RNA sequence: CAAAGAGGGGUUUUAGGAGCCUCUCUUAGAAGGUUAAUAAAAGUUUAGGAUAAACCCUAAGCUAGUUUGUUUGCUAUGAUUUGCAUAAUAGCUAUACAAGCAAGAUUCUCAAAUUGCGGGGAUACCCUAAAGAUUAAGUAACCAACUAUAUCUAGAAAUAGUUAUAGGGCGCAGGUAAUGACUAGCGGUACGGUAAAAUCACUUAAUAUGUAGGAAACUUAAAUGGGCAAUCCGCAGCCAAGUACAUAAGCUUUGCCCCAGGUGGGCUAAGGUCUGUAUGCAGUUCAACGACUAGACGGGAGUCGGCUAGAAAAUAUCUAGCUUAAGAUAUAGUCUGGCCCUGUAUGAAAAUACAUA
Numbered sequence: 001c002a003a004a005g006a007g008g009g010g011u012u013u014u015a016g017g018a019g020c021c022u023c024u025c026u027u028a029g030a031a032g033g034u035u036a037a038u039a040a041a042a043g044u045u046u047a048g049g050a051u052a053a054a055c056c057c058u059a060a061g062c063u064a065g066u067u068u069g070u071u072u073g074c075u076a077u078g079a080u081u082u083g084c085a086u087a088a089u090a091g092c093u094a095u096a097c098a099a100g101c102a103a104g105a106u107u108c109u110c111a112a113a114u115u116g117c118g119g120g121g122a123u124a125c126c127c128u129a130a131a132g133a134u135u136a137a138g139u140a141a142c143c144a145a146c147u148a149u150a151u152c153u154a155g156a157a158a159u160a161g162u163u164a165u166a167g168g169g170c171g172c173a174g175g176u177a178a179u180g181a182c183u184a185g186c187g188g189u190a191c192g193g194u195a196a197a198a199u200c201a202c203u204u205a206a207u208a209u210g211u212a213g214g215a216a217a218c219u220u221a222a223a224u225g226g227g228c229a230a231u232c233c234g235c236a237g238c239c240a241a242g243u244a245c246a247u248a249a250g251c252u253u254u255g256c257c258c259c260a261g262g263u264g265g266g267c268u269a270a271g272g273u274c275u276g277u278a279u280g281c282a283g284u285u286c287a288a289c290g291a292c293u294a295g296a297c298g299g300g301a302g303u304c305g306g307c308u309a310g311a312a313a314a315u316a317u318c319u320a321g322c323u324u325a326a327g328a329u330a331u332a333g334u335c336u337g338g339c340c341c342u343g344u345a346u347g348a349a350a351a352u353a354c355a356u357a
Stems, first nucleotide, its partner, number of pairs: 005025009031038001104304005110298001115236006125227003237284002242279004288336001290335005306322006342355005
Shown here is a 357-nucleotide RNA sequence from Diaporthe ampelina, a member of the family "Group I catalytic intron". For this family Rfam cites "Self-splicing of group I introns" (Cech, Annu Rev Biochem, 1990). It scores 98 bits against the family's covariance model. NCBI's taxonomy places the organism under Eukaryota, Fungi, Dikarya, Diaporthaceae, Diaporthe. About the family: Group I catalytic introns are large self-splicing ribozymes.